[Rfam]
RNA sequence: AUGGCUCAGGGUGAUGGAGUUCCACCUGCUAACCGCUCCCAUAGCUGAUUCACAUAGCUUUGGCAGCUGAUGACUCCUGUGUAUUG
Numbered sequence: 001a002u003g004g005c006u007c008a009g010g011g012u013g014a015u016g017g018a019g020u021u022c023c024a025c026c027u028g029c030u031a032a033c034c035g036c037u038c039c040c041a042u043a044g045c046u047g048a049u050u051c052a053c054a055u056a057g058c059u060u061u062g063g064c065a066g067c068u069g070a071u072g073a074c075u076c077c078u079g080u081g082u083a084u085u086g
Base pairs, nucleotide, nucleotide: 010026011025012024013023016077017076018075019074020073021072035067036066037065
RNA: Fluoride riboswitch aptamer (crcB RNA motif)